Notes:
A member of the RNA family "let-7 microRNA precursor family" from Melipona quadrifasciata, 84 nucleotides long. The family has 64 seed sequences and 8,694 matches in Rfam 15.1. Rfam's curators write: This family represents the microRNAs (miRNA) let-7 and mir-98. let-7 was identified from a study of developmental timing in C. elegans, and was later shown to be part of a much larger class of non-coding RNAs termed miRNAs. The match comes from Rfam's covariance-model search (58 bits). For this family Rfam cites "Cryo-EM Structure of Human Dicer and Its Complexes with a Pre-miRNA Substrate" (Liu et al., Cell, 2018). Rfam links the family to the GO terms RISC complex and miRNA-mediated post-transcriptional gene silencing.
[Rfam]
RNA sequence: CCUGGGUGAGGUAGUAGGUUGUAUAGUAGGGAAUAGAAAUUCGCGAUAUACGAAGUCCACUGUACAACUUGCUAACUUUCCCGG
Numbered sequence: 001c002c003u004g005g006g007u008g009a010g011g012u013a014g015u016a017g018g019u020u021g022u023a024u025a026g027u028a029g030g031g032a033a034u035a036g037a038a039a040u041u042c043g044c045g046a047u048a049u050a051c052g053a054a055g056u057c058c059a060c061u062g063u064a065c066a067a068c069u070u071g072c073u074a075a076c077u078u079u080c081c082c083g084g
Stems, first nucleotide, its partner, number of pairs: 001084002004081003008078003012074016034045001049054001